RNA sequence: AGCAAACGGAAAGAACUCUUGGCGGUCUGGCUUGGGGCUGUCUUGUUACGUCCAGUGUCGUCGGUGCGGCUUUGACGAGCGUCGAUGAUGGCUGCUCUUCAUGAAGGAUUGGGCCGAGUUCGGGUUCUAGGUAUGUUGCUGGAGUGAAGGUGCUGCUGCUUAGAGGUAUAGGAGCUUGAGGUACGACGAAGCCAUCUUUUGCGCACCUCUGGACAAGGCGGCUGUACGAGCGAGGCUAUACCGGGACCCAUCUUGAGUUGGAGUCAGAGUUUCGUACUCGUCUGAUAUGGCCGAACUUGUCUAGUCUGUCGGUCCUAGAGACGCAGGAGGAGGAUACGUCGUCACUUCGACCUAUGCCAUUUGGACGGAACAGCCCAUUGAGGCUGUCCUGGCUGUCUCCUCUCCAGCAAUGGCGAGAAGACGGCCCCUCUUUUUUCGAGG
Number, nucleotide and partner (000 for none) at each position: 001a000002g000003c000004a000005a000006a000007c000008g000009g000010a000011a000012a000013g000014a000015a000016c000017u000018c000019u000020u000021g000022g000023c000024g000025g000026u000027c000028u000029g000030g000031c000032u000033u000034g000035g000036g000037g000038c000039u000040g000041u000042c000043u000044u000045g000046u000047u000048a000049c000050g000051u000052c000053c000054a000055g000056u000057g000058u000059c000060g000061u000062c000063g000064g000065u000066g000067c000068g000069g000070c000071u000072u000073u000074g000075a000076c000077g000078a000079g000080c000081g000082u000083c000084g000085a000086u000087g000088a000089u000090g000091g000092c000093u000094g000095c000096u000097c000098u000099u000100c000101a000102u000103g000104a000105a000106g000107g000108a000109u000110u000111g000112g000113g000114c000115c000116g000117a000118g000119u000120u000121c000122g000123g000124g000125u000126u000127c000128u000129a000130g000131g000132u000133a000134u000135g000136u000137u000138g000139c000140u000141g000142g000143a000144g000145u000146g000147a000148a000149g000150g000151u000152g000153c000154u000155g000156c000157u000158g000159c000160u000161u000162a000163g000164a000165g000166g000167u000168a000169u000170a000171g000172g000173a000174g000175c000176u000177u000178g000179a000180g000181g000182u000183a000184c000185g000186a000187c000188g000189a000190a000191g000192c000193c000194a000195u000196c000197u000198u000199u000200u000201g000202c000203g000204c000205a000206c000207c000208u000209c000210u000211g000212g000213a000214c000215a000216a000217g000218g000219c000220g000221g000222c000223u000224g000225u000226a000227c000228g000229a000230g000231c000232g000233a000234g000235g000236c000237u000238a000239u000240a000241c000242c000243g000244g000245g265246a264247c263248c261249c260250a259251u000252c000253u000254u000255g000256a000257g000258u000259u250260g249261g248262a000263g247264u246265c245266a000267g279268a278269g277270u276271u000272u000273c000274g000275u000276a270277c269278u268279c267280g000281u000282c000283u000284g000285a000286u000287a000288u000289g000290g000291c000292c000293g000294a000295a000296c000297u000298u000299g000300u000301c000302u000303a000304g000305u000306c000307u000308g000309u000310c000311g000312g000313u000314c000315c000316u000317a000318g000319a000320g000321a000322c000323g000324c000325a000326g000327g000328a000329g000330g000331a000332g000333g000334a000335u000336a000337c000338g000339u000340c000341g000342u000343c000344a000345c000346u000347u000348c000349g000350a000351c000352c000353u000354a000355u000356g000357c000358c000359a000360u000361u000362u000363g000364g000365a000366c000367g000368g000369a000370a000371c000372a000373g000374c000375c000376c000377a000378u000379u000380g000381a000382g000383g000384c000385u000386g000387u000388c000389c000390u000391g000392g000393c000394u000395g000396u000397c000398u000399c000400c000401u000402c000403u000404c000405c000406a000407g000408c000409a000410a000411u000412g000413g000414c000415g000416a000417g000418a000419a000420g000421a000422c000423g000424g000425c000426c000427c000428c000429u000430c000431u000432u000433u000434u000435u000436u000437c000438g000439a000440g000441g000